[Rfam]
Rfam assigns this 80-nucleotide sequence from Flavobacterium tibetense to the family "Flavo-1 RNA". Taxonomically the source falls in Flavobacterium (Bacteria, Pseudomonadati, Flavobacteriia, Flavobacteriaceae). Rfam classes the family as a small RNA.
RNA sequence: CCCUAGCCCCGAUAGUAGUGGAAAUCCUUUUUGUUUUUUUCGAAAAAAUAAAAAGAUUGUAACGGAUAGCGGGAUAAAGC
Number, nucleotide and partner (000 for none) at each position: 001c000002c000003c000004u000005a000006g000007c000008c000009c072010c071011g070012a000013u068014a067015g000016u000017a000018g063019u062020g000021g000022a000023a058024a057025u056026c055027c000028u000029u053030u052031u051032u050033g049034u048035u047036u046037u045038u044039u000040u000041c000042g000043a000044a038045a037046a036047a035048a034049u033050a032051a031052a030053a029054a000055g026056a025057u024058u023059g000060u000061a000062a019063c018064g000065g000066a000067u014068a013069g000070c011071g010072g009073g000074a000075u000076a000077a000078a000079g000080c000